[Rfam]
This 154-nucleotide RNA from Bifidobacterium tissieri belongs to the Rfam family "FMN riboswitch aptamer (RFN element)".
RNA sequence: ACGAAGUUUCAGGGCGGGGCGAGAUUCCCCACUGGCGGUAACGGCACGAUCGGUUUUCACAACGGUCAUAGCCGAAGCCCGCGAGCCGCGGAAGGCGGCCGAUCCGGUGCGAUUCCGGAGCCAACGGUGACAGUCCGGAUGAGAGAAACGAGGU
Numbered sequence: 001a002c003g004a005a006g007u008u009u010c011a012g013g014g015c016g017g018g019g020c021g022a023g024a025u026u027c028c029c030c031a032c033u034g035g036c037g038g039u040a041a042c043g044g045c046a047c048g049a050u051c052g053g054u055u056u057u058c059a060c061a062a063c064g065g066u067c068a069u070a071g072c073c074g075a076a077g078c079c080c081g082c083g084a085g086c087c088g089c090g091g092a093a094g095g096c097g098g099c100c101g102a103u104c105c106g107g108u109g110c111g112a113u114u115c116c117g118g119a120g121c122c123a124a125c126g127g128u129g130a131c132a133g134u135c136c137g138g139a140u141g142a143g144a145g146a147a148a149c150g151a152g153g154u
Stems, first nucleotide, its partner, number of pairs: 006149005017029003031134002033123002035082004077121002085099003103119005125137003
The match comes from Rfam's covariance-model search (95 bits).